[Rfam]
Nucleotides: 094
Stems, first nucleotide, its partner, number of pairs: 001090008010082002014078002016073006033056001035054001037052002
Number, partner (000 for none) and nucleotide at each position: 001090g002089g003088c004087u005086g006085g007084u008083c009000c010082g011081a012000a013000g014078g015077u016073a017072g018071u019070g020069a021068g022000u023000u024000a025000u026000c027000u028000c029000a030000c031000u032000u033056g034000a035054u036000u037052g038051u039000u040000c041000a042000c043000a044000g045000u046000c047000a048000g049000u050000u051038a052037c053000a054035g055000a056033u057000u058000g059000a060000a061000c062000u063000c064000c065000c066000u067000c068021c069020u070019c071018a072017c073016u074000a075000u076000u077015g078014c079000a080000c081011u082010u083008g084007a085006c086005c087004a088003g089002u090001c091000u092000u093000a094000a
Y RNA: a 94-nucleotide RNA from Propithecus coquereli.
The match comes from Rfam's covariance-model search (62 bits).
It is annotated as a non-coding RNA gene.
The base pairs follow the family's consensus structure, which is taken from published work.